[Rfam]
Nucleotides: 103
Base pairs, nucleotide, nucleotide: 002098003097004096005095006094007093013087014086015085018083019082021080026077027076028075029074
Number, partner (000 for none) and nucleotide at each position: 001000g002098a003097g004096u005095u006094g007093g008000c009000u010000u011000u012000a013087g014086c015085u016000c017000u018083g019082c020000g021080g022000u023000u024000c025000c026077u027076u028075u029074g030000c031000a032000u033000c034000a035000a036000a037000c038000u039000u040000u041000c042000a043000g044000u045000u046000u047000g048000c049000u050000a051000a052000g053000g054000a055000c056000u057000c058000u059000u060000g061000u062000c063000c064000a065000a066000g067000g068000g069000u070000g071000g072000u073000u074029c075028a076027a077026g078000a079000c080021c081000a082019g083018c084000a085015g086014g087013u088000g089000c090000u091000c092000u093007c094006c095005a096004g097003c098002u099000c100000u101000u102000u103000g